[Rfam]
RNA sequence: UUUACCGUAAGGUAAGCAGUGAAGGUUAUUUGUGAUUGAUUAAUGAGCAAAUAAAUUCAACCGGCAAAACCCGGUACUGACGAACAGAAACUGGAUACGAGGCUUGAUAAACCGGAUAAGCAAGCACAUCAUUGUGACGUCCAAAAUGUUCCGUAAGGAAUGAGCACCGAAGUAGUAGAUCAGGCAGCGAUUGGGUGAAGGAAGAUGCU
Numbered sequence: 001u002u003u004a005c006c007g008u009a010a011g012g013u014a015a016g017c018a019g020u021g022a023a024g025g026u027u028a029u030u031u032g033u034g035a036u037u038g039a040u041u042a043a044u045g046a047g048c049a050a051a052u053a054a055a056u057u058c059a060a061c062c063g064g065c066a067a068a069a070c071c072c073g074g075u076a077c078u079g080a081c082g083a084a085c086a087g088a089a090a091c092u093g094g095a096u097a098c099g100a101g102g103c104u105u106g107a108u109a110a111a112c113c114g115g116a117u118a119a120g121c122a123a124g125c126a127c128a129u130c131a132u133u134g135u136g137a138c139g140u141c142c143a144a145a146a147u148g149u150u151c152c153g154u155a156a157g158g159a160a161u162g163a164g165c166a167c168c169g170a171a172g173u174a175g176u177a178g179a180u181c182a183g184g185c186a187g188c189g190a191u192u193g194g195g196u197g198a199a200g201g202a203a204g205a206u207g208c209u
Stems, first nucleotide, its partner, number of pairs: 001016006058207002065201001069196006075189001077187003091184002094181003102176003108162002112158002114142004120135004
RNA: Group II catalytic intron D1-D4-3
Organism: Sunxiuqinia elliptica